The record is a 62-nucleotide RNA from Musa troglodytarum, which matches "Plastid-psbA-2 3UTR RNA" in Rfam. The literature on the family includes a 2023 paper in Plant Commun by Richter et al., "Retrograde signaling in plants: A critical review focusing on the GUN pathway and beyond". It scores 56 bits against the family's covariance model. The base pairs follow the family's consensus structure, which was predicted with LocARNA. Clan: Plastid-psbA 3UTR RNA clan. From the family's description: Plastid psbA-2 is a non-coding RNA (ncRNA) present in plastids. It was identified in inverted repeat sequences in the 3 prime untranslate region (3UTR) of photosystem II quinone-binding protein (psbA). By type it is a cis-regulatory element.
[Rfam]
RNA sequence: ACAAAGUAGCAAUACCCCAUAUCUUGCUAAAACAAGAUACGGGGUAUUGCUACUUUGUUUGA
Numbered sequence: 001a002c003a004a005a006g007u008a009g010c011a012a013u014a015c016c017c018c019a020u021a022u023c024u025u026g027c028u029a030a031a032a033c034a035a036g037a038u039a040c041g042g043g044g045u046a047u048u049g050c051u052a053c054u055u056u057g058u059u060u061g062a
Stems, first nucleotide, its partner, number of pairs: 001058018019038001022037005